[Rfam]
RNA sequence: GAACGUUGCAAGAUUCCCGAUAGGAUUUAAAGAUGUGUAUCUUUGAAGAUUCCUUGUAACCGACUAUUAUUCAGGGGGAAUAUAAAUG
Numbered sequence: 001g002a003a004c005g006u007u008g009c010a011a012g013a014u015u016c017c018c019g020a021u022a023g024g025a026u027u028u029a030a031a032g033a034u035g036u037g038u039a040u041c042u043u044u045g046a047a048g049a050u051u052c053c054u055u056g057u058a059a060c061c062g063a064c065u066a067u068u069a070u071u072c073a074g075g076g077g078g079a080a081u082a083u084a085a086a087u088g
Stems, first nucleotide, its partner, number of pairs: 014080005022054003026047008060075002
The family of this 88-nucleotide RNA from Vagococcus lutrae is "SAM-III riboswitch aptamer (SMK box)". Rfam links the family to the GO terms regulation of translational initiation and methionine adenosyltransferase activity.